[Rfam]
RNA sequence: GUUAAGAUUUCGCCAAAUUUUUAUAAUGAAAAACGGGGAAACCAAUUUUUAUUGGGGUGAAUAAAGGUUUGAUAACCUUUUAGGGCGCAGUUCUCACCGUCCGAAUCCGUCAGCUAACCUCGUAGGCGAUCGUGAGAAAGAUA
Numbered sequence: 001g002u003u004a005a006g007a008u009u010u011c012g013c014c015a016a017a018u019u020u021u022u023a024u025a026a027u028g029a030a031a032a033a034c035g036g037g038g039a040a041a042c043c044a045a046u047u048u049u050u051a052u053u054g055g056g057g058u059g060a061a062u063a064a065a066g067g068u069u070u071g072a073u074a075a076c077c078u079u080u081u082a083g084g085g086c087g088c089a090g091u092u093c094u095c096a097c098c099g100u101c102c103g104a105a106u107c108c109g110u111c112a113g114c115u116a117a118c119c120u121c122g123u124a125g126g127c128g129a130u131c132g133u134g135a136g137a138a139a140g141a142u143a
Base pairs, nucleotide, nucleotide: 011128012127013126014125018032019031020030033123034122035121036120037119038118043054044053055108056107057106063080064079065078066077083102084101085100086099
RNA: c-di-AMP riboswitch aptamer (ydaO/yuaA leader)